The record is a 61-nucleotide sequence from Monodelphis domestica, which matches "mir-7398 microRNA precursor family" in Rfam. Pairs were carried over by alignment from the consensus structure, which was predicted with RNAalifold. Gene Ontology terms of the family: RISC complex and miRNA-mediated post-transcriptional gene silencing.
[Rfam]
RNA sequence: UGUGUGGAGGUAAGGAACUAUGCCGUUUUCUCUCUCCCGGUAAAUCCUUGCCUCUCACAGU
Numbered sequence: 001u002g003u004g005u006g007g008a009g010g011u012a013a014g015g016a017a018c019u020a021u022g023c024c025g026u027u028u029u030c031u032c033u034c035u036c037c038c039g040g041u042a043a044a045u046c047c048u049u050g051c052c053u054c055u056c057a058c059a060g061u
Stems, first nucleotide, its partner, number of pairs: 002058003006055006013049003017045001022041003